[Rfam]
RNA sequence: GGCUUAAUUACUCUUUUGGUCCCUUAACUUAUUUUUUGAUUUCGUUUUGGUUCCUUAACUUAUUUUUUGGUUUCCUUUUGGUCCCUUAACUCUAAUACAUUCAUCCUAACAUAAAGGACCAAAGUGGUUAACGGAGGAAGAGUUAAGGGACCAAAACGAAACCAAAAAGUAAGUUAAAGGACCAAAACAAAACUUUUAAUAGUUAAGGGA
Numbered sequence: 001g002g003c004u005u006a007a008u009u010a011c012u013c014u015u016u017u018g019g020u021c022c023c024u025u026a027a028c029u030u031a032u033u034u035u036u037u038g039a040u041u042u043c044g045u046u047u048u049g050g051u052u053c054c055u056u057a058a059c060u061u062a063u064u065u066u067u068u069g070g071u072u073u074c075c076u077u078u079u080g081g082u083c084c085c086u087u088a089a090c091u092c093u094a095a096u097a098c099a100u101u102c103a104u105c106c107u108a109a110c111a112u113a114a115a116g117g118a119c120c121a122a123a124g125u126g127g128u129u130a131a132c133g134g135a136g137g138a139a140g141a142g143u144u145a146a147g148g149g150a151c152c153a154a155a156a157c158g159a160a161a162c163c164a165a166a167a168a169g170u171a172a173g174u175u176a177a178a179g180g181a182c183c184a185a186a187a188c189a190a191a192a193c194u195u196u197u198a199a200u201a202g203u204u205a206a207g208g209g210a
Stems, first nucleotide, its partner, number of pairs: 003207006014187003018183003022179001024177011036165003
The family of this 210-nucleotide RNA from Medicago truncatula is "MIR2655 microRNA precursor family". Lineage of the source: Eukaryota > Streptophyta > Gunneridae > Pentapetalae > Medicago. The base pairs follow the family's consensus structure, which was predicted with RNAalifold. It scores 167 bits against the family's covariance model.